[Rfam]
RNA sequence: GCUGCUAUAGCGUGGGUUGUAGUUGAUGAAGACAUAGCCGCGCGAUUGGUCGAUCAAGUGGAACAGCGGGUUCCAGUCGAACAUGGCCAGCAUGAAACUGGGCAGGGUGUUGGCGACGAACAUCUUGCCGGACGCGAUCAUGUUGGCGCGUUG
Numbered sequence: 001g002c003u004g005c006u007a008u009a010g011c012g013u014g015g016g017u018u019g020u021a022g023u024u025g026a027u028g029a030a031g032a033c034a035u036a037g038c039c040g041c042g043c044g045a046u047u048g049g050u051c052g053a054u055c056a057a058g059u060g061g062a063a064c065a066g067c068g069g070g071u072u073c074c075a076g077u078c079g080a081a082c083a084u085g086g087c088c089a090g091c092a093u094g095a096a097a098c099u100g101g102g103c104a105g106g107g108u109g110u111u112g113g114c115g116a117c118g119a120a121c122a123u124c125u126u127g128c129c130g131g132a133c134g135c136g137a138u139c140a141u142g143u144u145g146g147c148g149c150g151u152u153g
Stems, first nucleotide, its partner, number of pairs: 003034002006032001008030001013025003040054001041052002064153005070082004086147009098134001102129001103127006110119003